[Rfam]
RNA sequence: GGUUUCCAUUGGUGCAAAUCCAAUCACCUCAGUUUGAGAUGAGAAGUAAUUCUCCAUUGGUAGCAAAUAGUUAUCUAUUAAGCGGAGGAAAGA
Numbered sequence: 001g002g003u004u005u006c007c008a009u010u011g012g013u014g015c016a017a018a019u020c021c022a023a024u025c026a027c028c029u030c031a032g033u034u035u036g037a038g039a040u041g042a043g044a045a046g047u048a049a050u051u052c053u054c055c056a057u058u059g060g061u062a063g064c065a066a067a068u069a070g071u072u073a074u075c076u077a078u079u080a081a082g083c084g085g086a087g088g089a090a091a092g093a
Stems, first nucleotide, its partner, number of pairs: 009023004052087004056078002059075006
The family of this 93-nucleotide RNA is "Plastid-rps12 3UTR RNA". It is one of the family's seed sequences. On this family, see Richter et al., Plant Commun 2023: "Retrograde signaling in plants: A critical review focusing on the GUN pathway and beyond". It is annotated as a cis-regulatory element.